[Rfam]
RNA sequence: GAAAAGAGGGGUGAGAAUCCCCUCCGCCGUAAGCCUAAGGGUUCCUGAGGAAGGUUCGUCCGCUCAGGGUAAGUCGGGACCUAAGCCGAGGCCGAAAGGCGUAGGCGAUGGACAACAGGUUGAAAUUCCUGUACCACCUGAUUCCGUUUGUACGAUGGGGGGACGCAGGAGGGUAGAGAAUCGCGCGACUGGAUGUGCGCGUCCAAGCGGUGAGGCUGAAGGGACAGGCAAAUCCGUCCUUUCUUUAAGGCCGGGCCGUGAUGGCGAGGGAAAUUUAAAGUACCGAAGUUCUUGAUCUCACACUGCCAAGAAAAGCCUCUAGGAGGAAGCAGGUGCCCGUACCGCAAACCGACACAGGUAGGCGAGGAGAGAAUCCUAAGGCGCU
Numbered sequence: 001g002a003a004a005a006g007a008g009g010g011g012u013g014a015g016a017a018u019c020c021c022c023u024c025c026g027c028c029g030u031a032a033g034c035c036u037a038a039g040g041g042u043u044c045c046u047g048a049g050g051a052a053g054g055u056u057c058g059u060c061c062g063c064u065c066a067g068g069g070u071a072a073g074u075c076g077g078g079a080c081c082u083a084a085g086c087c088g089a090g091g092c093c094g095a096a097a098g099g100c101g102u103a104g105g106c107g108a109u110g111g112a113c114a115a116c117a118g119g120u121u122g123a124a125a126u127u128c129c130u131g132u133a134c135c136a137c138c139u140g141a142u143u144c145c146g147u148u149u150g151u152a153c154g155a156u157g158g159g160g161g162g163a164c165g166c167a168g169g170a171g172g173g174u175a176g177a178g179a180a181u182c183g184c185g186c187g188a189c190u191g192g193a194u195g196u197g198c199g200c201g202u203c204c205a206a207g208c209g210g211u212g213a214g215g216c217u218g219a220a221g222g223g224a225c226a227g228g229c230a231a232a233u234c235c236g237u238c239c240u241u242u243c244u245u246u247a248a249g250g251c252c253g254g255g256c257c258g259u260g261a262u263g264g265c266g267a268g269g270g271a272a273a274u275u276u277a278a279a280g281u282a283c284c285g286a287a288g289u290u291c292u293u294g295a296u297c298u299c300a301c302a303c304u305g306c307c308a309a310g311a312a313a314a315g316c317c318u319c320u321a322g323g324a325g326g327a328a329g330c331a332g333g334u335g336c337c338c339g340u341a342c343c344g345c346a347a348a349c350c351g352a353c354a355c356a357g358g359u360a361g362g363c364g365a366g367g368a369g370a371g372a373a374u375c376c377u378a379a380g381g382c383g384c385u
Stems, first nucleotide, its partner, number of pairs: 006024006025383004033363004039343002044068006053061002075339004080111002085106003089102001091100003115132005135335006142328004153323001157319004165306004171299003176293005182201005203264002207259004214252003219242007227235002268284002271281001349358002365377004
Bacterial large subunit ribosomal RNA: a 385-nucleotide part of an RNA from Thermoactinomyces daqus.
Lineage of the source: Bacteria > Bacillati > Bacilli > Thermoactinomycetaceae > Thermoactinomyces.
Pairs were carried over by alignment from the consensus structure, which is taken from published work.